The family of this 88-nucleotide RNA sequence from Thermacetogenium phaeum is "c-di-GMP-I riboswitch aptamer".
Lineage of the source: Bacteria > Bacillati > Clostridia > Thermoanaerobacteraceae > Thermacetogenium phaeum.

Nucleotides: 088
Stems, first nucleotide, its partner, number of pairs: 012037002018031005040082004047078002049074003056068004
Number, partner (000 for none) and nucleotide at each position: 001000a002000u003000c004000c005000g006000a007000g008000a009000a010000a011000g012037g013036c014000a015000a016000a017000a018031c019030c020029g021028u022027c023000g024000a025000a026000a027022g028021a029020c030019g031018g032000c033000g034000g035000c036013g037012c038000a039000a040082a041081a042080c043079u044000a045000g046000a047078g048077g049074g050073g051072c052000u053000a054000c055000a056068g057067c058066g059065g060000u061000u062000g063000c064000u065059c066058c067057g068056c069000c070000a071000g072051g073050c074049c075000a076000g077048c078047c079043a080042g081041u082040u083000g084000c085000c086000g087000g088000u